This 32-nucleotide sequence from Levilactobacillus bambusae belongs to the Rfam family "L31-Firmicutes ribosomal protein leader". It is annotated as a cis-regulatory leader. A search with the family's covariance model found it, with a score of 35 bits. For this family Rfam cites "Discovery of 20 novel ribosomal leader candidates in bacteria and archaea" (Eckert and Weinberg, BMC Microbiol, 2020).
RNA sequence: CUCUGAAUCGGAAAGGUUCAGGGCAAAAGGAG
Number, nucleotide and partner (000 for none) at each position: 001c023002u022003c021004u020005g019006a000007a000008u016009c015010g000011g000012a000013a000014a000015g009016g008017u000018u000019c005020a004021g003022g002023g001024c000025a000026a000027a000028a000029g000030g000031a000032g000